[Rfam]
RNA sequence: GGGCUGGUGGCGCAAUGGUUAGCGCAUUGGUUUUCGGCUAGCAAGAAAAAAUCACCAAAGGUUAUGGGUUCGAGUCCCAUCUGGCUCG
Numbered sequence: 001g002g003g004c005u006g007g008u009g010g011c012g013c014a015a016u017g018g019u020u021a022g023c024g025c026a027u028u029g030g031u032u033u034u035c036g037g038c039u040a041g042c043a044a045g046a047a048a049a050a051a052u053c054a055c056c057a058a059a060g061g062u063u064a065u066g067g068g069u070u071c072g073a074g075u076c077c078c079a080u081c082u083g084g085c086u087c088g
Base pairs, nucleotide, nucleotide: 001087002086003085004084005083006082007081010025011024012023013022027058028057029056030055031054064080065079066078067077068076
RNA: tRNA
Organism: Pneumocystis wakefieldiae